Rfam assigns this 153-nucleotide RNA from Lupinus angustifolius to the family "Small nucleolar RNA snoR145".
A reference for the family is Chen and Wu (2009), "Mining small RNA sequencing data: a new approach to identify small nucleolar RNAs in Arabidopsis", Nucleic Acids Res.
Gene Ontology terms of the family: RNA processing and nucleolus.
The family's consensus secondary structure was predicted with mfold.
Taxonomically the source falls in Lupinus (Eukaryota, Spermatophyta, Gunneridae, rosids).
By type it is an H/ACA-box small nucleolar RNA.
RNA sequence: AUGCGAAGUUCCCAGCAGAGAGGUGAGCUACUCUUUAAUAUUGAGGCCUCUCUAACGAUUUAUUUCUAUAUUCUUCGCAAAUUUAUUUGCCGAAUCGUAGGAUGCCCAAAUAUAUUUGAUUCUUGGUUCAUCUGUAAAAUCGGCUAUAUCUCU
Numbered sequence: 001a002u003g004c005g006a007a008g009u010u011c012c013c014a015g016c017a018g019a020g021a022g023g024u025g026a027g028c029u030a031c032u033c034u035u036u037a038a039u040a041u042u043g044a045g046g047c048c049u050c051u052c053u054a055a056c057g058a059u060u061u062a063u064u065u066c067u068a069u070a071u072u073c074u075u076c077g078c079a080a081a082u083u084u085a086u087u088u089g090c091c092g093a094a095u096c097g098u099a100g101g102a103u104g105c106c107c108a109a110a111u112a113u114a115u116u117u118g119a120u121u122c123u124u125g126g127u128u129c130a131u132c133u134g135u136a137a138a139a140u141c142g143g144c145u146a147u148a149u150c151u152c153u
Stems, first nucleotide, its partner, number of pairs: 003078006011020001013018001025052003031045003089144005101132002104129001106126004